[Rfam]
RNA sequence: CGUGCGCUUUAGAGCAUCGCUCCGUUGCCCCAAGCGGGUGGCGGUGAGGAAAGUCCGAACACCAGAGGGCACCGUGCUUCCUAACCGGAAGGCGCCCAGGCGGCCUUGGCCGAUGGGCGACGGCAUGUGCAACAGAAAGCUAACCCGCCGAUGGACCCGACCCCGGUUGGGCACAGGUAAGGGGUGAAAAGGGGAGGUAAGAGCUCCUCGGCGCGCGUGGCGACACGGGCGGCCAGGCAAACCCCAUGGGGUGCAAGGCUAAGCAGCGUCGCACUGCCCCUUCGAGGGCAGAUAUCGCGGCCCGCGAAACCGCGACGCGGGUAGGCCGCUUGAGCGCUCCGGCAACGGGGCGUCCAGAUAGAUGGUGCUCCUGAAGAGACCGAGGCCCCGCGGCCCCUUGCUCUUCACGGACAGAAUUCGGCUUAUCGAUGCGCACGUGGC
Dot-bracket structure: (((((((.((((((((((.(.(((((((.........))))))).)....[[[.[[[[[((((...[[[[.((((((((((.....)))))(((((((...............)))))).)((...((((.............((.(((..((..................))..)))...)).......((((((.......)))))).((((.((((....)))).))).)...))..)))))))))))))...((((......((((((......................((((.]]]]))))....))))))......))))......((((((((....))))))))..........)))))))..............................................]]]]]]]].).)).)))))))....
RNA: Bacterial RNase P class A
Organism: Longimonas halophila